[Rfam]
RNA sequence: CUGCGAAUAUUCUCGCUGUCCUGGUUUUGUGGUAGCCAGGGCAGGCUAACCAUUCGCUAUAUUAAGACCAUGCAUGUGUCCCCAGGCUGAGUUCUCUCCCUGAGCCUGGUUUUAUCAAUGCUGGUGAUAAGU
Numbered sequence: 001c002u003g004c005g006a007a008u009a010u011u012c013u014c015g016c017u018g019u020c021c022u023g024g025u026u027u028u029g030u031g032g033u034a035g036c037c038a039g040g041g042c043a044g045g046c047u048a049a050c051c052a053u054u055c056g057c058u059a060u061a062u063u064a065a066g067a068c069c070a071u072g073c074a075u076g077u078g079u080c081c082c083c084a085g086g087c088u089g090a091g092u093u094c095u096c097u098c099c100c101u102g103a104g105c106c107u108g109g110u111u112u113u114a115u116c117a118a119u120g121c122u123g124g125u126g127a128u129a130a131g132u
Stems, first nucleotide, its partner, number of pairs: 003057003016044011067125004072121002082109007090101002

Small nucleolar RNA SNORA72: a 132-nucleotide RNA sequence from Echinops telfairi. Its family is annotated with nucleolus and RNA processing in the Gene Ontology. The family has 29 seed sequences and 1,541 matches in Rfam 15.1. U72 is a member of the H/ACA class of snoRNAs. The snoRNA gene is located in intron 4 of the ribosomal L30 protein gene in human, mouse and chicken. The source organism's lineage runs through Eukaryota, Chordata, Amniota, Eutheria and Echinops. The literature on the family includes a 1997 paper in Genes Dev by Ganot et al., "The family of box ACA small nucleolar RNAs is defined by an evolutionarily conserved secondary structure and ubiquitous sequence elements essential for RNA accumulation". It is annotated as an H/ACA-box small nucleolar RNA.